[Rfam]
This 82-nucleotide RNA sequence from Cyclopterus lumpus belongs to the Rfam family "mir-26 microRNA precursor family". Pairs were carried over by alignment from the consensus structure, which was predicted with RNAalifold. NCBI's taxonomy places the organism under Eukaryota, Gnathostomata, Clupeocephala, Percomorphaceae, Cyclopterus.
RNA sequence: CCUGGGUCUGUUUCAAGUAAUCCAGGAUAGGCUUGUUAAAGUGGGGAAAAGCCUAUUCGGGAUGACUUGGUUCAGAAACAAG
Numbered sequence: 001c002c003u004g005g006g007u008c009u010g011u012u013u014c015a016a017g018u019a020a021u022c023c024a025g026g027a028u029a030g031g032c033u034u035g036u037u038a039a040a041g042u043g044g045g046g047a048a049a050a051g052c053c054u055a056u057u058c059g060g061g062a063u064g065a066c067u068u069g070g071u072u073c074a075g076a077a078a079c080a081a082g
Stems, first nucleotide, its partner, number of pairs: 003080002007076004014069005020063003025058009

Rfam 15.1 lists 2,251 matches to the family in 645 species. Gene Ontology terms of the family: RISC complex and miRNA-mediated post-transcriptional gene silencing.